[Rfam]
RNA sequence: GGCCUGUGAUGUUUGAGAUUGUCCGUACCAUCUGAGAGAUUUCUCCUUGAUGAGUUUUAUCCUCUAUGUUCUGAGGCUA
Numbered sequence: 001g002g003c004c005u006g007u008g009a010u011g012u013u014u015g016a017g018a019u020u021g022u023c024c025g026u027a028c029c030a031u032c033u034g035a036g037a038g039a040u041u042u043c044u045c046c047u048u049g050a051u052g053a054g055u056u057u058u059a060u061c062c063u064c065u066a067u068g069u070u071c072u073g074a075g076g077c078u079a
Base pairs, nucleotide, nucleotide: 001078002077003076004075
RNA: small nucleolar RNA snoR117